Rfam assigns this 544-nucleotide part of an RNA from Algibacter luteus to the family "Bacterial large subunit ribosomal RNA".
The literature on the family includes a 2001 paper in Science by Yusupov et al., "Crystal structure of the ribosome at 5.5 A resolution".

RNA sequence: UAAAUAAGGGCGUAUGGGGAAUGCCUAGGCUCUCAAAGGCGAAGAAGGACGUGAUAAGCUGCGAAAAGCUGCGGGGAUCAGCACACAUGAAUUGAUCCGCAGAUAUCCGAAUGGGGCAACCCACUAUAUUGAAGAUAUAGUAUCCGCAAGGAGGCGAACCCGGAGAACUGAAACAUCUAAGUACCCGGAGGAGAAGAAAACAAAAGUGAUUCCGUUAGUAGUGGCGAGCGAACGCGGAUUAGCCCAAACCAGUGUUGUUACGGCAAUACUGGGGUUGUAGGACCACGACAUUAGAAGCAUAAUGAAUUAGAACUGUUUGGAAAGACAGGCCAUAGACGGUGAUAGCCCGGUAUAAGUAAAGCAUGUGGAUAUAGUGGUAUCCUGAGUAGUGCGGGGCACGUGAAACCCUGUAUGAAACAGUCGGGACCAUCCGAUAAGGCUAAAUACUCUUGAGAGACCGAUAGUGAACUAGUACCGUGAGGGAAAGGUGAAAAGAACCCUGAAUAAGGGAGUGAAAUAGAACCUGAAACCAUACGCUUACAAG
Numbered sequence: 001u002a003a004a005u006a007a008g009g010g011c012g013u014a015u016g017g018g019g020a021a022u023g024c025c026u027a028g029g030c031u032c033u034c035a036a037a038g039g040c041g042a043a044g045a046a047g048g049a050c051g052u053g054a055u056a057a058g059c060u061g062c063g064a065a066a067a068g069c070u071g072c073g074g075g076g077a078u079c080a081g082c083a084c085a086c087a088u089g090a091a092u093u094g095a096u097c098c099g100c101a102g103a104u105a106u107c108c109g110a111a112u113g114g115g116g117c118a119a120c121c122c123a124c125u126a127u128a129u130u131g132a133a134g135a136u137a138u139a140g141u142a143u144c145c146g147c148a149a150g151g152a153g154g155c156g157a158a159c160c161c162g163g164a165g166a167a168c169u170g171a172a173a174c175a176u177c178u179a180a181g182u183a184c185c186c187g188g189a190g191g192a193g194a195a196g197a198a199a200a201c202a203a204a205a206g207u208g209a210u211u212c213c214g215u216u217a218g219u220a221g222u223g224g225c226g227a228g229c230g231a232a233c234g235c236g237g238a239u240u241a242g243c244c245c246a247a248a249c250c251a252g253u254g255u256u257g258u259u260a261c262g263g264c265a266a267u268a269c270u271g272g273g274g275u276u277g278u279a280g281g282a283c284c285a286c287g288a289c290a291u292u293a294g295a296a297g298c299a300u301a302a303u304g305a306a307u308u309a310g311a312a313c314u315g316u317u318u319g320g321a322a323a324g325a326c327a328g329g330c331c332a333u334a335g336a337c338g339g340u341g342a343u344a345g346c347c348c349g350g351u352a353u354a355a356g357u358a359a360a361g362c363a364u365g366u367g368g369a370u371a372u373a374g375u376g377g378u379a380u381c382c383u384g385a386g387u388a389g390u391g392c393g394g395g396g397c398a399c400g401u402g403a404a405a406c407c408c409u410g411u412a413u414g415a416a417a418c419a420g421u422c423g424g425g426a427c428c429a430u431c432c433g434a435u436a437a438g439g440c441u442a443a444a445u446a447c448u449c450u451u452g453a454g455a456g457a458c459c460g461a462u463a464g465u466g467a468a469c470u471a472g473u474a475c476c477g478u479g480a481g482g483g484a485a486a487g488g489u490g491a492a493a494a495g496a497a498c499c500c501u502g503a504a505u506a507a508g509g510g511a512g513u514g515a516a517a518u519a520g521a522a523c524c525u526g527a528a529a530c531c532a533u534a535c536g537c538u539u540a541c542a543a544g
Base pairs, nucleotide, nucleotide: 008539009538010537011536012535013534014533015532016531017530023524024488025487028459029458030456031455032454033453034452035451036450037448038447039155040154047108048107049106050063051062052061069102070101071100072099073098074097075096078090079089080088113122114121115120123141124140125139126138127137128136129135143152144151145150159190160188161187162186163185170177171176200207201206210444211238212237213236214235215234221229222228241441242440243439244438249272250271251270252269253268254267255266279383280382281381283377284376285375286374295370298367299366300365301364303361307355308354309353313328314327315326316325317324331335337349338348339347389413390412391411392410393409394408395407396406420435421434422433423432424431475482476481498510499509500508501507